[Rfam]
The record is a 140-nucleotide sequence from Digitaria exilis, which matches "Small nucleolar RNA snoR136" in Rfam. The family's consensus secondary structure was predicted with mfold. Taxonomically the source falls in Digitaria (Eukaryota, Streptophyta, Euphyllophyta, Poales). A reference for the family is Chen and Wu (2009), "Mining small RNA sequencing data: a new approach to identify small nucleolar RNAs in Arabidopsis", Nucleic Acids Res. By type it is an H/ACA-box small nucleolar RNA.
RNA sequence: UCGGCUUCUCUUGAUUUCGUUGUGUCUGUGAGCCUGUAUGGUUCGUGGGCAGUGCCAAAGACUGAAGCUAAAGAGAUUGUUCCUCUCGCUAUCCGGCGCGGAUUUUUUGUGAUGCGAUUGGACGUCGAGGAACUACAGUU
Numbered sequence: 001u002c003g004g005c006u007u008c009u010c011u012u013g014a015u016u017u018c019g020u021u022g023u024g025u026c027u028g029u030g031a032g033c034c035u036g037u038a039u040g041g042u043u044c045g046u047g048g049g050c051a052g053u054g055c056c057a058a059a060g061a062c063u064g065a066a067g068c069u070a071a072a073g074a075g076a077u078u079g080u081u082c083c084u085c086u087c088g089c090u091a092u093c094c095g096g097c098g099c100g101g102a103u104u105u106u107u108u109g110u111g112a113u114g115c116g117a118u119u120g121g122a123c124g125u126c127g128a129g130g131a132a133c134u135a136c137a138g139u140u
Stems, first nucleotide, its partner, number of pairs: 002064003007061003012057002015054001023051007032042003079133007087124002092122005102110001